[Rfam]
RNA sequence: UUCUCCAAUCCCUGAAGAAGAUCUCAUCUCUAACAUCAUCAGUGGUCUUGGUAAUGAGUAUAAUCCCUUCUAUGCUUCUAUUGCUGCUGUCAGUAGACAUGAGAGUUUCUCCUUUUCUGAUUUACAAGGGUUAUUGCUUGGUUUUGAAU
Number, nucleotide and partner (000 for none) at each position: 001u000002u000003c000004u148005c000006c146007a145008a144009u000010c000011c000012c000013u000014g000015a000016a000017g000018a000019a000020g000021a000022u000023c000024u000025c000026a000027u000028c000029u000030c000031u000032a000033a000034c000035a000036u000037c000038a000039u000040c000041a000042g000043u000044g000045g000046u000047c000048u000049u000050g000051g000052u000053a000054a000055u000056g000057a000058g000059u000060a000061u000062a000063a000064u000065c000066c000067c000068u000069u000070c000071u000072a000073u000074g000075c000076u000077u000078c000079u000080a000081u000082u000083g000084c000085u000086g000087c000088u000089g000090u000091c000092a118093g117094u000095a115096g114097a113098c000099a000100u000101g000102a000103g000104a000105g000106u000107u000108u000109c000110u000111c000112c000113u097114u096115u095116u000117c093118u092119g000120a000121u000122u000123u000124a000125c000126a000127a000128g000129g000130g000131u000132u000133a000134u000135u000136g000137c000138u000139u000140g000141g000142u000143u000144u008145u007146g006147a000148a004149u000
RNA: Small nucleolar RNA Z247
Organism: Rhynchospora breviuscula